[Rfam]
The family of this 119-nucleotide RNA is "LOOT RNA".
Rfam's curators put it in the seed alignment.
Rfam classes the family as a small RNA.
Pairs were carried over by alignment from the consensus structure, which is taken from published work.

RNA sequence: GACCUAAGUCUUUUUUGAAAGAUAUGGUCAAAAAUCCAAGUAGGGUGUAAAGAACUCCUCGUUCAGCAUACCUUACUUGGUCAUGAUUCGAAAGAAUUGUGGGCGGUCGCGAGAUCGUC
Numbered sequence: 001g002a003c004c005u006a007a008g009u010c011u012u013u014u015u016u017g018a019a020a021g022a023u024a025u026g027g028u029c030a031a032a033a034a035u036c037c038a039a040g041u042a043g044g045g046u047g048u049a050a051a052g053a054a055c056u057c058c059u060c061g062u063u064c065a066g067c068a069u070a071c072c073u074u075a076c077u078u079g080g081u082c083a084u085g086a087u088u089c090g091a092a093a094g095a096a097u098u099g100u101g102g103g104c105g106g107u108c109g110c111g112a113g114a115u116c117g118u119c
Stems, first nucleotide, its partner, number of pairs: 001029004009022005036080011052064004082101008102119006